Shown here is a 72-nucleotide sequence from Cricetulus griseus, a member of the family "Small nucleolar RNA SNORD45". Pairs were carried over by alignment from the consensus structure, which was predicted with PFOLD. Gene Ontology terms of the family: RNA processing and nucleolus. Rfam classes the family as a C/D-box small nucleolar RNA. A reference for the family is Galardi et al. (2002), "Purified box C/D snoRNPs are able to reproduce site-specific 2'-O-methylation of target RNA in vitro", Mol Cell Biol.
[Rfam]
RNA sequence: GGUCGGUGAUGUCCUGGCAUGUAUUAGCUGAAUGCUAACUUGAUGCAAAUUCUCAAGUGAUGCUGAGACCUU
Numbered sequence: 001g002g003u004c005g006g007u008g009a010u011g012u013c014c015u016g017g018c019a020u021g022u023a024u025u026a027g028c029u030g031a032a033u034g035c036u037a038a039c040u041u042g043a044u045g046c047a048a049a050u051u052c053u054c055a056a057g058u059g060a061u062g063c064u065g066a067g068a069c070c071u072u
Stems, first nucleotide, its partner, number of pairs: 001070004